[Rfam]
Nucleotides: 081
Stems, first nucleotide, its partner, number of pairs: 005077004011070006018063008030054005
Number, partner (000 for none) and nucleotide at each position: 001000g002000c003000c004000u005077u006076g007075a008074c009000c010000a011070g012069a013068u014067a015066u016065g017000u018063u019062u020061g021060a022059u023058a024057u025056u026000u027000u028000u029000u030054g031053g032052u033051g034050g035000u036000u037000c038000a039000a040000u041000a042000u043000c044000c045000u046000a047000a048000g049000u050034c051033c052032a053031c054030c055000a056025a057024g058023u059022a060021u061020c062019a063018a064000u065016c066015a067014u068013g069012u070011c071000c072000g073000u074008g075007u076006c077005g078000c079000g080000g081000u